[Rfam]
This 119-nucleotide sequence from Streptomyces tsukubensis belongs to the Rfam family "Streptomyces-metK RNA". NCBI's taxonomy places the organism under Bacteria, Bacillati, Actinomycetota, Kitasatosporales, Streptomyces tsukubensis. The family's RNA type in Rfam is small RNA.
RNA sequence: UCGGGACGGGUGGACCGACGGCGGACGGUGGCGGAUAAACUGGUGCGCGGAACGUCGCGGGGCGCAGCCCCCUGCCGGUCCACCCAUGAUCAGCCAGCAGCCGCUGCAACCCCAGGGAG
Numbered sequence: 001u002c003g004g005g006a007c008g009g010g011u012g013g014a015c016c017g018a019c020g021g022c023g024g025a026c027g028g029u030g031g032c033g034g035a036u037a038a039a040c041u042g043g044u045g046c047g048c049g050g051a052a053c054g055u056c057g058c059g060g061g062g063c064g065c066a067g068c069c070c071c072c073u074g075c076c077g078g079u080c081c082a083c084c085c086a087u088g089a090u091c092a093g094c095c096a097g098c099a100g101c102c103g104c105u106g107c108a109a110c111c112c113c114a115g116g117g118a119g
Stems, first nucleotide, its partner, number of pairs: 049081003053077002057075001059073004095106004
Dot-bracket structure: ................................................(((.((..(.((((.......)))).))).))).............((((....)))).............